[Rfam]
RNA: L31-Actinobacteria ribosomal protein leader
Organism: Nocardioides sp.
RNA sequence: UCAGUCCCGGUUCACGCCUCGCGUCGUGUGCGGCGACCCGGGAC
Dot-bracket structure: ...((.((((....((((.(((.....))).))))..)))).))
Numbered sequence: 001u002c003a004g005u006c007c008c009g010g011u012u013c014a015c016g017c018c019u020c021g022c023g024u025c026g027u028g029u030g031c032g033g034c035g036a037c038c039c040g041g042g043a044c
Stems, first nucleotide, its partner, number of pairs: 004044002007041004015035004020030003